RNA sequence: AUGAACCAGUGAGAACCGUGUGAAUCCAGUAGUGCGGGGAUUCGCAUGGUUCUCAAAA
Number, nucleotide and partner (000 for none) at each position: 001a000002u000003g000004a000005a000006c000007c000008a000009g000010u055011g054012a053013g052014a051015a050016c049017c048018g047019u046020g045021u044022g043023a042024a041025u040026c039027c000028a000029g000030u000031a000032g000033u000034g000035c000036g000037g000038g000039g026040a025041u024042u023043c022044g021045c020046a019047u018048g017049g016050u015051u014052c013053u012054c011055a010056a000057a000058a000

Shown here is a 58-nucleotide sequence, a member of the family "Plastid-ccsA-ndhD-1 3UTR RNA". Rfam's curators write: Plastid-ccsA-ndhD-1 is a non-coding RNA (ncRNA) recognised in plastids. It was found in the three prime untranslated region (3UTR) of ccsA and ndhD genes, its 3UTR location suggests a role in transcript maturation. Clan: Plastid-ccsA_ndhD 3UTR RNA clan.